[Rfam]
RNA sequence: UGAUGGCAAUGAUGAUUUUUAUGCUCUGUUUACCUGAAAGCAAAUAUGAGGGUAUUCAGUCACUACCUCAUCUGAUGCCAUCU
Numbered sequence: 001u002g003a004u005g006g007c008a009a010u011g012a013u014g015a016u017u018u019u020u021a022u023g024c025u026c027u028g029u030u031u032a033c034c035u036g037a038a039a040g041c042a043a044a045u046a047u048g049a050g051g052g053u054a055u056u057c058a059g060u061c062a063c064u065a066c067c068u069c070a071u072c073u074g075a076u077g078c079c080a081u082c083u
Stems, first nucleotide, its partner, number of pairs: 002082006
The record is an 83-nucleotide sequence from Dipodomys ordii, which matches "Small nucleolar RNA SNORD11B" in Rfam. By type it is a C/D-box small nucleolar RNA. The literature on the family includes a 2006 paper in Nucleic Acids Res by Yang et al., "snoSeeker: an advanced computational package for screening of guide and orphan snoRNA genes in the human genome". Pairs were carried over by alignment from the consensus structure, which was predicted with WAR. The organism belongs to Dipodomys, within Eukaryota. It is one of the family's seed sequences.